[Rfam]
RNA: Archaeal large subunit ribosomal RNA, nucleotides 1713 to 2070
RNA sequence: CGGGAGAACCGACGUUAGGGAAUUCGGCAAGUUAGUUCCGUACGUUCGCAAUAAGGAAUGCCUGCCCCAGGCGGGGCAGGUCGCAGUGUCUUGGGCGCUCCGACUGUCUAGUAACAACACAGGUGACCGCAAAUCCGCAAGGACUCGUACGGUCACUGAAUCCUGCCCAGUGCGGGUAUCUGAACACCUCGUACAAGAGGACGAAGGACCCGUCAACGGCGGGGGUAACUAUGACCCUCUUAAGGUAGCGUAGUACCUUGCCGCUUCAGUAGCGGCUUGCAUGAAUGGAUCAACGAGAGCGCCACUGUCCCAACGUUGGACCCGGUGAACUGUACGUUCCAGUGCGGAGUCUGGAGAC
Numbered sequence: 001c002g003g004g005a006g007a008a009c010c011g012a013c014g015u016u017a018g019g020g021a022a023u024u025c026g027g028c029a030a031g032u033u034a035g036u037u038c039c040g041u042a043c044g045u046u047c048g049c050a051a052u053a054a055g056g057a058a059u060g061c062c063u064g065c066c067c068c069a070g071g072c073g074g075g076g077c078a079g080g081u082c083g084c085a086g087u088g089u090c091u092u093g094g095g096c097g098c099u100c101c102g103a104c105u106g107u108c109u110a111g112u113a114a115c116a117a118c119a120c121a122g123g124u125g126a127c128c129g130c131a132a133a134u135c136c137g138c139a140a141g142g143a144c145u146c147g148u149a150c151g152g153u154c155a156c157u158g159a160a161u162c163c164u165g166c167c168c169a170g171u172g173c174g175g176g177u178a179u180c181u182g183a184a185c186a187c188c189u190c191g192u193a194c195a196a197g198a199g200g201a202c203g204a205a206g207g208a209c210c211c212g213u214c215a216a217c218g219g220c221g222g223g224g225g226u227a228a229c230u231a232u233g234a235c236c237c238u239c240u241u242a243a244g245g246u247a248g249c250g251u252a253g254u255a256c257c258u259u260g261c262c263g264c265u266u267c268a269g270u271a272g273c274g275g276c277u278u279g280c281a282u283g284a285a286u287g288g289a290u291c292a293a294c295g296a297g298a299g300c301g302c303c304a305c306u307g308u309c310c311c312a313a314c315g316u317u318g319g320a321c322c323c324g325g326u327g328a329a330c331u332g333u334a335c336g337u338u339c340c341a342g343u344g345c346g347g348a349g350u351c352u353g354g355a356g357a358c
Base pairs, nucleotide, nucleotide: 001324002323003322004321009319010318011317012316013315014314015313016312018310019309020308035059036058037057038056039055044049060081061080062079063078064077065076066075067074068073082086094303095302096301097300098299099298100297101295102294105119106118107117122157123156124155125154126153127152128151129150130147134143135142136141160290161289162288163287165220166219167218170217171216172213173212174211175210176209179208180207181206187200188199189198190197221239222238223237224236225235226234240244260276261275262274263273264272265271338355339354340353341352342351
Dot-bracket structure: ((((....((((((((.(((..............(((((....(....).....)))))(((((((((....)))))))))(...).......(((((((((..(((.........)))..(((((((((...(((....)))...)..))))))))..((((.(((..(((((((..(((.....((((......)))).....))))))))..)))))((((((.......))))))(...)...............((((((.....))))))..........))))...)).)))))))....))).)))))))).)))).............(((((........)))))...